Shown here is a 214-nucleotide RNA sequence from Pseudofrankia inefficax, a member of the family "Actinobacteria sRNA Ms_IGR-5".
By type it is a small RNA.
RNA sequence: ACACGGGAGAGGAGGUGGUCCAGACUUGUGUAGUAGUUGGACUCGUGAGGUGACUGUCAGCUAGGCCGGUCUCCUUGUGCUCACCUCCUUGGUGUCCCUGAGGGCACCGGCCGGCGAGUACCAGGCAGUCACCGGGCCCCCGGGUGCCGUCGUUCAGUCCCGACGGCCCGCGCACCGCUUCUGCGGGCGCGGAGCAACCCGGGGGUUUUCACGU
Numbered sequence: 001a002c003a004c005g006g007g008a009g010a011g012g013a014g015g016u017g018g019u020c021c022a023g024a025c026u027u028g029u030g031u032a033g034u035a036g037u038u039g040g041a042c043u044c045g046u047g048a049g050g051u052g053a054c055u056g057u058c059a060g061c062u063a064g065g066c067c068g069g070u071c072u073c074c075u076u077g078u079g080c081u082c083a084c085c086u087c088c089u090u091g092g093u094g095u096c097c098c099u100g101a102g103g104g105c106a107c108c109g110g111c112c113g114g115c116g117a118g119u120a121c122c123a124g125g126c127a128g129u130c131a132c133c134g135g136g137c138c139c140c141c142g143g144g145u146g147c148c149g150u151c152g153u154u155c156a157g158u159c160c161c162g163a164c165g166g167c168c169c170g171c172g173c174a175c176c177g178c179u180u181c182u183g184c185g186g187g188c189g190c191g192g193a194g195c196a197a198c199c200c201g202g203g204g205g206u207u208u209u210c211a212c213g214u
Stems, first nucleotide, its partner, number of pairs: 014058006060115003064111001067109004072104006134208012149167006
The literature on the family includes a 2013 paper in RNA by Li et al., "Identification of small RNAs in Mycobacterium smegmatis using heterologous Hfq". The match comes from Rfam's covariance-model search (78 bits).